[Rfam]
RNA sequence: CGAAUGGGCUGACGCCUGGGGCGGUCUCUCAGGCCGGCCUCAGGGCCAGGGUGAGUUUGGGGUUCGUGAGGGCUGGGCAGGUAGUGGGUUCGCGCCUCCGGGGGCGUUCCCAUCCUGUUCCAAAGCUGGCGGGCGCUGGACUGAGGCAUCCGCCUCUGCGAUGACUGGGUCGGGAGCGGGGUUCCUGGGGUUGCACCCUCGUCCACAUUUCUGGGCGGGGCGACCAAUCCUGAGGAUCUUGUUCCCCUCCCUCGGCAUCAAGGAUCCUGGUCAUCUUCCCAUCCGACCCGUCUUGAAACACGG
Numbered sequence: 001c002g003a004a005u006g007g008g009c010u011g012a013c014g015c016c017u018g019g020g021g022c023g024g025u026c027u028c029u030c031a032g033g034c035c036g037g038c039c040u041c042a043g044g045g046c047c048a049g050g051g052u053g054a055g056u057u058u059g060g061g062g063u064u065c066g067u068g069a070g071g072g073c074u075g076g077g078c079a080g081g082u083a084g085u086g087g088g089u090u091c092g093c094g095c096c097u098c099c100g101g102g103g104g105c106g107u108u109c110c111c112a113u114c115c116u117g118u119u120c121c122a123a124a125g126c127u128g129g130c131g132g133g134c135g136c137u138g139g140a141c142u143g144a145g146g147c148a149u150c151c152g153c154c155u156c157u158g159c160g161a162u163g164a165c166u167g168g169g170u171c172g173g174g175a176g177c178g179g180g181g182u183u184c185c186u187g188g189g190g191u192u193g194c195a196c197c198c199u200c201g202u203c204c205a206c207a208u209u210u211c212u213g214g215g216c217g218g219g220g221c222g223a224c225c226a227a228u229c230c231u232g233a234g235g236a237u238c239u240u241g242u243u244c245c246c247c248u249c250c251c252u253c254g255g256c257a258u259c260a261a262g263g264a265u266c267c268u269g270g271u272c273a274u275c276u277u278c279c280c281a282u283c284c285g286a287c288c289c290g291u292c293u294u295g296a297a298a299c300a301c302g303g
Base pairs, nucleotide, nucleotide: 001285002284004282005281006280007279008278011275012274288303289302290301291300